Rfam assigns this 59-nucleotide RNA from Cellulomonas sp. Leaf395 to the family "msiK RNA". The match comes from Rfam's covariance-model search (66 bits).

Nucleotides: 059
Stems, first nucleotide, its partner, number of pairs: 009051007027044006
Number, partner (000 for none) and nucleotide at each position: 001000u002000c003000u004000u005000g006000a007000c008000a009051c010050u011049c012048u013047u014046c015045a016000c017000u018000a019000c020000g021000g022000a023000u024000c025000g026000u027044c028043c029042g030041g031040c032039a033000c034000g035000u036000a037000c038000c039032u040031g041030c042029c043028g044027g045015u046014g047013a048012a049011g050010g051009g052000a053000u054000u055000g056000a057000u058000c059000a
The family's RNA type in Rfam is cis-regulatory element.